Metazoan signal recognition particle RNA: a 298-nucleotide RNA from Pediculus humanus. The family is grouped with related families in Rfam's "SRP clan". By type it is a non-coding RNA gene. A search with the family's covariance model found it, with a score of 267 bits. The family's consensus secondary structure is taken from published work. The signal recognition particle (SRP) is a universally conserved ribonucleoprotein. It is involved in the co-translational targeting of proteins to membranes. The eukaryotic SRP consists of a 300-nucleotide 7S RNA and six proteins: SRPs 72, 68, 54, 19, 14, and 9. Archaeal SRP consists of a 7S RNA and homologues of the eukaryotic SRP19 and SRP54 proteins. Eukaryotic and archaeal 7S RNAs have very similar secondary structures, as represented by this family. Eight helical elements fold into the Alu and S domains, separated by a long linker region. The Alu domain is thought to mediate the peptide chain elongation retardation function of the SRP. The universally conserved helix which interacts with the SRP54 M domain mediates signal sequence recognition. In eukaryotes and archaea, the SRP19-helix 6 complex is thought to be involved in SRP assembly and stabilises helix 8 for SRP54 binding. The Signal Recognition Particle Database (SRPDB) provides compilations of SRP components, with phylogenetic data and structural illustrations. Many sequences below the threshold for this family are clearly closely related, but are most likely to be SRP RNA derived pseudogenes. The human genome in particular is known to contain a large amount of SRP RNA related sequence, including Alu repeats. While the threshold of this family is set high so as to minimise the number of hits to such regions, it is likely that some remain.
RNA sequence: GCUGGGAGUGGUGGUGUACUCCUGUAAUCCAACUACUAGGAGGCCUGGUAUAGAGGAUGUUUUGAGGGCGGGGGUCCUGGGGUUGGAUGCCUCACGUAGACUAGGCGUCCGCACUAAGAUCGGCAUCAACAUGGGUACCUUGGGGGAGCCCGAGGUAGCCAGGUUGGCUAAGGAGGGGCGAAUCGGGCCAGGGGGGAAACUCAGCAGCCAAAAGUCCCCGUGUUGGUCAGUAGUGGGAUAGCGCCCGGGAGUGGGAAUCCAGUUUCAGCCCGUCCAAUAAAAACAGACCUGUAUCUUU
Numbered sequence: 001g002c003u004g005g006g007a008g009u010g011g012u013g014g015u016g017u018a019c020u021c022c023u024g025u026a027a028u029c030c031a032a033c034u035a036c037u038a039g040g041a042g043g044c045c046u047g048g049u050a051u052a053g054a055g056g057a058u059g060u061u062u063u064g065a066g067g068g069c070g071g072g073g074g075u076c077c078u079g080g081g082g083u084u085g086g087a088u089g090c091c092u093c094a095c096g097u098a099g100a101c102u103a104g105g106c107g108u109c110c111g112c113a114c115u116a117a118g119a120u121c122g123g124c125a126u127c128a129a130c131a132u133g134g135g136u137a138c139c140u141u142g143g144g145g146g147a148g149c150c151c152g153a154g155g156u157a158g159c160c161a162g163g164u165u166g167g168c169u170a171a172g173g174a175g176g177g178g179c180g181a182a183u184c185g186g187g188c189c190a191g192g193g194g195g196g197a198a199a200c201u202c203a204g205c206a207g208c209c210a211a212a213a214g215u216c217c218c219c220g221u222g223u224u225g226g227u228c229a230g231u232a233g234u235g236g237g238a239u240a241g242c243g244c245c246c247g248g249g250a251g252u253g254g255g256a257a258u259c260c261a262g263u264u265u266c267a268g269c270c271c272g273u274c275c276a277a278u279a280a281a282a283a284c285a286g287a288c289c290u291g292u293a294u295c296u297u298u
Stems, first nucleotide, its partner, number of pairs: 001044003004023007028041003047295007058285006066275007077268012091255005097249001101248002104245005109237002112235005118228009127166004132161003136157009168172001175218005186209003193202003